[Rfam]
RNA sequence: UAGUUUUUUCCUAAAUCAAACUUCUCUAACUUUGAUCAGCAAAACAUAUUAAUAUCAUCCAUACCAAAUGAAUACACUCUCAAGGCGUAUUUCAUAGUGGAUUUAAUGAAACUAAUUUGAUAUUGGAAAUGUUGCUGCAUUUUUCUAUAAACUUGGUCAAAAUUUGAGAAGUUUGACUUAGGACAAAACUAUG
Numbered sequence: 001u002a003g004u005u006u007u008u009u010c011c012u013a014a015a016u017c018a019a020a021c022u023u024c025u026c027u028a029a030c031u032u033u034g035a036u037c038a039g040c041a042a043a044a045c046a047u048a049u050u051a052a053u054a055u056c057a058u059c060c061a062u063a064c065c066a067a068a069u070g071a072a073u074a075c076a077c078u079c080u081c082a083a084g085g086c087g088u089a090u091u092u093c094a095u096a097g098u099g100g101a102u103u104u105a106a107u108g109a110a111a112c113u114a115a116u117u118u119g120a121u122a123u124u125g126g127a128a129a130u131g132u133u134g135c136u137g138c139a140u141u142u143u144u145c146u147a148u149a150a151a152c153u154u155g156g157u158c159a160a161a162a163u164u165u166g167a168g169a170a171g172u173u174u175g176a177c178u179u180a181g182g183a184c185a186a187a188a189c190u191a192u193g
Base pairs, nucleotide, nucleotide: 005188006187007186008185009183011181012180013179014178016176017175018174019173020172021171022170023169024168025167026166031161032160033159034158035157038146039145041143042142043141044140047137048136051133052132053131054130055129058126059125065119066118067117068116069115
Source information
Rfam assigns this 193-nucleotide RNA sequence from Panicum hallii to the family "MIR1435 microRNA precursor family". The family's consensus secondary structure was predicted with RNAalifold. The match comes from Rfam's covariance-model search (98 bits). The source organism's lineage runs through Eukaryota, Streptophyta, Spermatophyta, Poales and Panicum hallii.